The record is an 87-nucleotide RNA from Gossypium klotzschianum, which matches "MIR7486 microRNA precursor family" in Rfam. A search with the family's covariance model found it, with a score of 89 bits. Pairs were carried over by alignment from the consensus structure, which was predicted with RNAalifold.

[Rfam]
RNA sequence: CACGUCAGCGCGAAAUGCUGAUGUGGAAGGAAAUCGCGCUCUCAAGGACACGAUUUCCUUCCACGUCAACAUCUCGCGCUGACGUGG
Numbered sequence: 001c002a003c004g005u006c007a008g009c010g011c012g013a014a015a016u017g018c019u020g021a022u023g024u025g026g027a028a029g030g031a032a033a034u035c036g037c038g039c040u041c042u043c044a045a046g047g048a049c050a051c052g053a054u055u056u057c058c059u060u061c062c063a064c065g066u067c068a069a070c071a072u073c074u075c076g077c078g079c080u081g082a083c084g085u086g087g
Stems, first nucleotide, its partner, number of pairs: 001086013015072003019068003023064014038049001040047002